[Rfam]
The record is an 87-nucleotide RNA sequence from Saccharothrix algeriensis, which matches "ZMP/ZTP riboswitch aptamer (pfl RNA motif)" in Rfam.

RNA sequence: GGGCGCGUUCGCGACUGGCGUGACGAGGGUGGAACCGACCACCGGGGAGCGACGAGCCGGCCUGCACCGCGCGCCUGGGUGCCCGGC
Numbered sequence: 001g002g003g004c005g006c007g008u009u010c011g012c013g014a015c016u017g018g019c020g021u022g023a024c025g026a027g028g029g030u031g032g033a034a035c036c037g038a039c040c041a042c043c044g045g046g047g048a049g050c051g052a053c054g055a056g057c058c059g060g061c062c063u064g065c066a067c068c069g070c071g072c073g074c075c076u077g078g079g080u081g082c083c084c085g086g087c
Stems, first nucleotide, its partner, number of pairs: 002058003006054002009052004015046002017075005029042004064082005
Dot-bracket structure: .(((.((.((((..(([[[[[.......((((......))))..))..)))))).))).....(((((..]]]]]..))))).....

NCBI's taxonomy places the organism under Bacteria, Bacillati, Actinomycetes, Pseudonocardiaceae, Saccharothrix.